[Rfam]
RNA sequence: GGCGUAAAGGGCGCGCAGGUGGGUCCGCAAGCGGGGGGUGAAAGGCCGGGGCUCAACCCCGGGACUGCUCACCGAACUGCGGGCCUCGAGGGGGUCAGGGGCCAGCGGAAUUCCGGGUGGAGAGGUGAAAUUCGUAGAGAUCCGGAGGAACGCCGGCGGCGAAAGCGGCUGGCUGGGGCCGCCCUGACACUGAGGCGCGAGAGCGUGGGGAGCGAACAGGAUUAGAUACCCUGGUAGUCCACGCCGUAAACGAUGGGCACCGGGCGUCCGGGGGGCCGACCCCCCUGGGCGCCGCAGCAAACGCGAUGAGUGCCCCGCCUGGGGAGUACGGCCGCAAGGCUAAAACUCAAAGGAAU
Numbered sequence: 001g002g003c004g005u006a007a008a009g010g011g012c013g014c015g016c017a018g019g020u021g022g023g024u025c026c027g028c029a030a031g032c033g034g035g036g037g038g039u040g041a042a043a044g045g046c047c048g049g050g051g052c053u054c055a056a057c058c059c060c061g062g063g064a065c066u067g068c069u070c071a072c073c074g075a076a077c078u079g080c081g082g083g084c085c086u087c088g089a090g091g092g093g094g095u096c097a098g099g100g101g102c103c104a105g106c107g108g109a110a111u112u113c114c115g116g117g118u119g120g121a122g123a124g125g126u127g128a129a130a131u132u133c134g135u136a137g138a139g140a141u142c143c144g145g146a147g148g149a150a151c152g153c154c155g156g157c158g159g160c161g162a163a164a165g166c167g168g169c170u171g172g173c174u175g176g177g178g179c180c181g182c183c184c185u186g187a188c189a190c191u192g193a194g195g196c197g198c199g200a201g202a203g204c205g206u207g208g209g210g211a212g213c214g215a216a217c218a219g220g221a222u223u224a225g226a227u228a229c230c231c232u233g234g235u236a237g238u239c240c241a242c243g244c245c246g247u248a249a250a251c252g253a254u255g256g257g258c259a260c261c262g263g264g265c266g267u268c269c270g271g272g273g274g275g276c277c278g279a280c281c282c283c284c285c286u287g288g289g290c291g292c293c294g295c296a297g298c299a300a301a302c303g304c305g306a307u308g309a310g311u312g313c314c315c316c317g318c319c320u321g322g323g324g325a326g327u328a329c330g331g332c333c334g335c336a337a338g339g340c341u342a343a344a345a346c347u348c349a350a351a352g353g354a355a356u
Base pairs, nucleotide, nucleotide: 001319002318003317009316011198012197013196014195016192018191019190020189022085023084024083025082026081027080028079030078031077032074033073034072036070037069038068039067040066046062047061048060049059050058051057089185090184091183093180094179095178096177100174101173102172103171104170105169106168107151111147112146113145114144115143116142117141118140122133123132124131159166160165203244204243205242206241207240208239212238213237217233218232219231220230255315256314257313258312259311260310263293264292265291266290267289268288269287270286271285272284273283274282297304298303321348322347323346330341331340332339333338
RNA: Bacterial small subunit ribosomal RNA, nucleotides 535 to 890